[Rfam]
RNA: mir-19 microRNA precursor family
RNA sequence: UUUUGUUUUUAGAUUUGCAAGCUUGCCUGACUAACUAAGGAUCAGUCAGGCAAGCUUGCAAAUCUAAAAAUAAAA
Numbered sequence: 001u002u003u004u005g006u007u008u009u010u011a012g013a014u015u016u017g018c019a020a021g022c023u024u025g026c027c028u029g030a031c032u033a034a035c036u037a038a039g040g041a042u043c044a045g046u047c048a049g050g051c052a053a054g055c056u057u058g059c060a061a062a063u064c065u066a067a068a069a070a071u072a073a074a075a
Stems, first nucleotide, its partner, number of pairs: 003073029